[Rfam]
RNA sequence: UCCGUACAUUAUUGUACAUCGCUCUGGAUAAGAGUGUCUGCUAAAUGACGAAUG
Numbered sequence: 001u002c003c004g005u006a007c008a009u010u011a012u013u014g015u016a017c018a019u020c021g022c023u024c025u026g027g028a029u030a031a032g033a034g035u036g037u038c039u040g041c042u043a044a045a046u047g048a049c050g051a052a053u054g
Stems, first nucleotide, its partner, number of pairs: 013043001014041003020036006
Shown here is a 54-nucleotide RNA sequence from Conger conger, a member of the family "UnaL2 LINE 3' element". It is annotated as a cis-regulatory element. Rfam's curators write: The eel long interspersed element (LINE) UnaL2 and its partner short interspersed element (SINE) share a conserved 3' tail containing a stem-loop that is critical for their retrotransposition. Presumably, the first step of retrotransposition is the recognition of their 3' tails by UnaL2-encoded reverse transcriptase. The solution structure of a 17-nucleotide RNA derived from the 3' tail of UnaL2 was determined by NMR. It scores 58 bits against the family's covariance model. Lineage of the source: Eukaryota > Euteleostomi > Elopocephalai > Anguilliformes > Conger.